Rfam assigns this 292-nucleotide RNA from Prunus avium to the family "Plant signal recognition particle RNA". It is annotated as a non-coding RNA gene.
[Rfam]
RNA sequence: GCUUUGAUCUGAACCCGAGUGGGGGCUUUGAGGUGCUGGAACAUUGGCCCAUAAUUAACGGGUCGGGUUCAAGCUGGCUAUCUAUUGGCCCGCCUAUUUCAAGUCAGGAGUUAAACCCUGCGGCUUGAGCGAAGGCUCUGGGUCACUGGGUUUCUAGAGAGGAGGGAACCGCAUAAGGCUGGCUUUACAGAGCAACGACUACCUCCCGCUCUUGGUAGUGGAAGGAUUACGAGUCAGUGUCACUCGGAUCCACCAUGGCCUGCUAAACUGACCCAAUUGAACCAAAACCUUU
Numbered sequence: 001g002c003u004u005u006g007a008u009c010u011g012a013a014c015c016c017g018a019g020u021g022g023g024g025g026c027u028u029u030g031a032g033g034u035g036c037u038g039g040a041a042c043a044u045u046g047g048c049c050c051a052u053a054a055u056u057a058a059c060g061g062g063u064c065g066g067g068u069u070c071a072a073g074c075u076g077g078c079u080a081u082c083u084a085u086u087g088g089c090c091c092g093c094c095u096a097u098u099u100c101a102a103g104u105c106a107g108g109a110g111u112u113a114a115a116c117c118c119u120g121c122g123g124c125u126u127g128a129g130c131g132a133a134g135g136c137u138c139u140g141g142g143u144c145a146c147u148g149g150g151u152u153u154c155u156a157g158a159g160a161g162g163a164g165g166g167a168a169c170c171g172c173a174u175a176a177g178g179c180u181g182g183c184u185u186u187a188c189a190g191a192g193c194a195a196c197g198a199c200u201a202c203c204u205c206c207c208g209c210u211c212u213u214g215g216u217a218g219u220g221g222a223a224g225g226a227u228u229a230c231g232a233g234u235c236a237g238u239g240u241c242a243c244u245c246g247g248a249u250c251c252a253c254c255a256u257g258g259c260c261u262g263c264u265a266a267a268c269u270g271a272c273c274c275a276a277u278u279g280a281a282c283c284a285a286a287a288c289c290u291u292u
Stems, first nucleotide, its partner, number of pairs: 014023003030291005037284003042279002044276003047272001049270001052267001055266003059262006065251006072244002075242003079239002085237005091231002094225002097223005103216009113153006120146001122144006128137003154159001161206005172197001174195001179190003
Taxonomically the source falls in Prunus (Eukaryota, Embryophyta, Spermatophyta, Rosales).